RNA sequence: UGCGACAUCCAUCAAAGGGGUAGUUCCCCACCGAGGAACUACUUUACCAUCUUCUGAAUUC
Numbered sequence: 001u002g003c004g005a006c007a008u009c010c011a012u013c014a015a016a017g018g019g020g021u022a023g024u025u026c027c028c029c030a031c032c033g034a035g036g037a038a039c040u041a042c043u044u045u046a047c048c049a050u051c052u053u054c055u056g057a058a059u060u061c
Base pairs, nucleotide, nucleotide: 017045018044019043020042021041022040023039024038025037026036027035
Shown here is a 61-nucleotide sequence from Protea cynaroides, a member of the family "Plastid-psbN 5UTR RNA". Rfam 15.1 lists 2,345 matches to the family in 397 species. For this family Rfam cites "Retrograde signaling in plants: A critical review focusing on the GUN pathway and beyond" (Richter et al., Plant Commun, 2023). Rfam describes the family as follows. Plastid psbN is a non-coding RNA (ncRNA) recognised in plastids. It was reported as a conserved 11 stem-loop in the prime untranslated region (5UTR) of psbN genes. It has been reported that the motif is retained in a subset of mature transcripts in barley, which can suggests a possible role in transcript alternative 5 prime processing. Rfam classes the family as a cis-regulatory element.